Overview:
The family of this 64-nucleotide RNA sequence from Myotis davidii is "mir-9242 microRNA precursor family". NCBI's taxonomy places the organism under Eukaryota, Craniata, Dipnotetrapodomorpha, Vespertilionidae, Myotis. Its family is annotated with miRNA-mediated post-transcriptional gene silencing and RISC complex in the Gene Ontology.
RNA sequence: GGCCUCCCUCUGCGGGGUCAUUGAUCAUGGGGCUCCAUGAUGGAUAGCUCAGCAGAGGGAGGCC
Numbered sequence: 001g002g003c004c005u006c007c008c009u010c011u012g013c014g015g016g017g018u019c020a021u022u023g024a025u026c027a028u029g030g031g032g033c034u035c036c037a038u039g040a041u042g043g044a045u046a047g048c049u050c051a052g053c054a055g056a057g058g059g060a061g062g063c064c
Stems, first nucleotide, its partner, number of pairs: 001064013015050004020045003024041007